[Rfam]
RNA: c-di-AMP riboswitch aptamer (ydaO/yuaA leader)
RNA sequence: AAUCUUAUACCGCUGAAUUCGAUUUCUUGAAACGGGGGAACCAUUUAUUGGCUCAAAGCCAACUGGGGUGAAUCCUUUUGCAAAAGGUAGGGCGACUCUUUACGCCCGAAUCCGUCAGCUAACCUCGUAAGCGUCUGAAGAGAGGAUGG
Number, nucleotide and partner (000 for none) at each position: 001a000002a000003u000004c000005u000006u000007a000008u000009a000010c000011c133012g132013c131014u130015g000016a000017a000018u031019u030020c029021g000022a000023u000024u000025u000026c000027u000028u000029g020030a019031a018032a128033c127034g126035g125036g124037g123038g000039a000040a000041c000042c065043a064044u000045u000046u000047a000048u000049u000050g000051g000052c000053u000054c000055a000056a000057a000058g000059c000060c000061a000062a000063c000064u043065g042066g113067g112068g111069u000070g000071a000072a000073u000074c087075c086076u085077u084078u000079u000080g000081c000082a000083a000084a077085a076086g075087g074088u000089a000090g107091g106092g105093c104094g000095a000096c000097u000098c000099u000100u000101u000102a000103c000104g093105c092106c091107c090108g000109a000110a000111u068112c067113c066114g000115u000116c000117a000118g000119c000120u000121a000122a000123c037124c036125u035126c034127g033128u032129a000130a014131g013132c012133g011134u000135c000136u000137g000138a000139a000140g000141a000142g000143a000144g000145g000146a000147u000148g000149g000